[Rfam]
About this RNA: Shown here is a 77-nucleotide RNA from Alligator sinensis, a member of the family "Mammalian CPEB3 ribozyme". The match comes from Rfam's covariance-model search (38 bits). The organism belongs to Alligator, within Eukaryota. The mammalian CPEB3 ribozyme is a self cleaving RNA located in the second intron of the CPEB3 gene which belongs to a family of genes regulating messenger RNA polyadenylation. This ribozyme is highly conserved and found only in mammals. The CPEB3 ribozyme is structurally and biochemically related to the human hepatitis delta virus (HDV) ribozyme and the HDV ribozyme is proposed to have arisen from the human transcriptome. There is currently only one other known self cleaving ribozyme in mammals, the CoTC motif.
RNA sequence: CGUUGCAAAUUUGAGGACACAGCAGAAGCGUUCACAGUGUGGCCCUAUCAAAUUCCAAUAAAGCUGUGAAUUCUGCU
Number, nucleotide and partner (000 for none) at each position: 001c000002g000003u000004u000005g000006c000007a000008a000009a000010u000011u000012u000013g045014a000015g044016g043017a000018c041019a000020c000021a077022g076023c075024a074025g073026a072027a071028g040029c039030g038031u000032u000033c000034a000035c000036a000037g000038u030039g029040u028041g018042g000043c016044c015045c013046u000047a000048u000049c066050a065051a000052a000053u062054u061055c000056c000057a000058a000059u000060a000061a054062a053063g000064c000065u050066g049067u000068g000069a000070a000071u027072u026073c025074u024075g023076c022077u021